c-di-AMP riboswitch aptamer (ydaO/yuaA leader): a 170-nucleotide RNA from Streptomyces gilvosporeus. The source organism's lineage runs through Bacteria, Bacillati, Actinomycetes, Streptomycetaceae and Streptomyces. A search with the family's covariance model found it, with a score of 58 bits.
[Rfam]
RNA sequence: CGAUCCACACCCCUGGGUCCCUGGCCGGAGCCGGGGACCCACACGUUCCACCGGGGUGAAUCGGUCGGUGCGGCCGCCAGUGGCGGACGCAGCGACCGUAGGGCAAGCCUUCCGUCAGCGACACCGCCCGAACCCGACAGCUAACCCGGUAGGCGGUCCACGGAAGGAGU
Numbered sequence: 001c002g003a004u005c006c007a008c009a010c011c012c013c014u015g016g017g018u019c020c021c022u023g024g025c026c027g028g029a030g031c032c033g034g035g036g037a038c039c040c041a042c043a044c045g046u047u048c049c050a051c052c053g054g055g056g057u058g059a060a061u062c063g064g065u066c067g068g069u070g071c072g073g074c075c076g077c078c079a080g081u082g083g084c085g086g087a088c089g090c091a092g093c094g095a096c097c098g099u100a101g102g103g104c105a106a107g108c109c110u111u112c113c114g115u116c117a118g119c120g121a122c123a124c125c126g127c128c129c130g131a132a133c134c135c136g137a138c139a140g141c142u143a144a145c146c147c148g149g150u151a152g153g154c155g156g157u158c159c160a161c162g163g164a165a166g167g168a169g170u
Stems, first nucleotide, its partner, number of pairs: 004029003030150006040053001054135003062098006101129004